[Rfam]
RNA sequence: AUCGCAUAUGCGGGAGAGAGACGGCUAGUGUCUCGCCGAAGGAGCAACCGCCCCGGAAACUCUCAGGCAAAAGGACCGCAUACAGAAG
Numbered sequence: 001a002u003c004g005c006a007u008a009u010g011c012g013g014g015a016g017a018g019a020g021a022c023g024g025c026u027a028g029u030g031u032c033u034c035g036c037c038g039a040a041g042g043a044g045c046a047a048c049c050g051c052c053c054c055g056g057a058a059a060c061u062c063u064c065a066g067g068c069a070a071a072a073g074g075a076c077c078g079c080a081u082a083c084a085g086a087a088g
Stems, first nucleotide, its partner, number of pairs: 007082007019033004035068003038064002042062003048056002

Description:
Shown here is an 88-nucleotide sequence from Chelatococcus asaccharovorans, a member of the family "Glycine riboswitch aptamer". A search with the family's covariance model found it, with a score of 67 bits. About the family: This family represents the bacterial glycine riboswitch. Gene Ontology term of the family: glycine biosynthetic process. Lineage of the source: Bacteria > Pseudomonadati > Pseudomonadota > Alphaproteobacteria > Chelatococcus.